This 437-nucleotide part of an RNA from Collinsella tanakaei belongs to the Rfam family "Bacterial large subunit ribosomal RNA". The family's consensus secondary structure is taken from published work. The organism belongs to Collinsella tanakaei, within Bacteria.
RNA sequence: CUCCCCGAAAUAGCUUUAGGGCUAGCGUCGCGCGUUAACCCCGGGAGGUAGAGCACCGGAUCGAUGAGGGGGCUUCGCCGCCUACCGAUUCGAACCGAACUCCGAAUGCCCGAGGGUCUAGAGCGCGGCAGUCAGAACAUGUGGGCUAAGCUGUGUGUUCGAGAGGGAAACAGCCCAGACCGCCCGCUAAGGUCCCAAAUUCAGAGCCGAGUGGCAAAGGAUGUGCGUCCGCGCAGACAACCAGGAGGUUGGCUUAGAAGCAGCCACCCCUUCAAAGAGUGCGUAACAGCUCACUGGUCGAGUGGACAUGCGCCGACAAUACACGGGGCUAAGCUCUGAACCGAAGCGGCGGGAUGAUUCAAAUCAUCGGUAGGGGAGCGUCCCAGCGGGGGCGAAGCGGGAGGGGAACCGACCGUGGACCUUCUGGGAGCGAGAAU
Numbered sequence: 001c002u003c004c005c006c007g008a009a010a011u012a013g014c015u016u017u018a019g020g021g022c023u024a025g026c027g028u029c030g031c032g033c034g035u036u037a038a039c040c041c042c043g044g045g046a047g048g049u050a051g052a053g054c055a056c057c058g059g060a061u062c063g064a065u066g067a068g069g070g071g072g073c074u075u076c077g078c079c080g081c082c083u084a085c086c087g088a089u090u091c092g093a094a095c096c097g098a099a100c101u102c103c104g105a106a107u108g109c110c111c112g113a114g115g116g117u118c119u120a121g122a123g124c125g126c127g128g129c130a131g132u133c134a135g136a137a138c139a140u141g142u143g144g145g146c147u148a149a150g151c152u153g154u155g156u157g158u159u160c161g162a163g164a165g166g167g168a169a170a171c172a173g174c175c176c177a178g179a180c181c182g183c184c185c186g187c188u189a190a191g192g193u194c195c196c197a198a199a200u201u202c203a204g205a206g207c208c209g210a211g212u213g214g215c216a217a218a219g220g221a222u223g224u225g226c227g228u229c230c231g232c233g234c235a236g237a238c239a240a241c242c243a244g245g246a247g248g249u250u251g252g253c254u255u256a257g258a259a260g261c262a263g264c265c266a267c268c269c270c271u272u273c274a275a276a277g278a279g280u281g282c283g284u285a286a287c288a289g290c291u292c293a294c295u296g297g298u299c300g301a302g303u304g305g306a307c308a309u310g311c312g313c314c315g316a317c318a319a320u321a322c323a324c325g326g327g328g329c330u331a332a333g334c335u336c337u338g339a340a341c342c343g344a345a346g347c348g349g350c351g352g353g354a355u356g357a358u359u360c361a362a363a364u365c366a367u368c369g370g371u372a373g374g375g376g377a378g379c380g381u382c383c384c385a386g387c388g389g390g391g392g393c394g395a396a397g398c399g400g401g402a403g404g405g406g407a408a409c410c411g412a413c414c415g416u417g418g419a420c421c422u423u424c425u426g427g428g429a430g431c432g433a434g435a436a437u
Stems, first nucleotide, its partner, number of pairs: 001378006011024005026131001027129007036122001037117001039115002042112004051103001052101002057097003061093004068086002070083004135160010165176003180352004185348003191342003200339001202338006219314002223311003227307006240298005246271003251265003272276001277292001281290002353368006379432001381429006388422003397416004403410002